Background
Shown here is a 109-nucleotide RNA sequence from Schinkia azotoformans, a member of the family "TPP riboswitch aptamer (THI element)". The base pairs follow the family's consensus structure, which is taken from published work. Gene Ontology term of the family: thiamine pyrophosphate binding.
[Rfam]
RNA sequence: GAAAACUACUAGGGGUGCCCGGAUGCUGGGCUGAGAGAAAAAUUUUCGUUUUCAACCCUUUGGACCUGAUCCGGAUUAUACCGGCGUAGGAAAGUAGAUGGUUUACAUA
Numbered sequence: 001g002a003a004a005a006c007u008a009c010u011a012g013g014g015g016u017g018c019c020c021g022g023a024u025g026c027u028g029g030g031c032u033g034a035g036a037g038a039a040a041a042a043u044u045u046u047c048g049u050u051u052u053c054a055a056c057c058c059u060u061u062g063g064a065c066c067u068g069a070u071c072c073g074g075a076u077u078a079u080a081c082c083g084g085c086g087u088a089g090g091a092a093a094g095u096a097g098a099u100g101g102u103u104u105a106c107a108u109a
Base pairs, nucleotide, nucleotide: 006097007096008095009094010093011059012058013057014056017031018030019029020028021027038052039051040050041049065090066089067088068087071084072083073082074081
It scores 85 bits against the family's covariance model.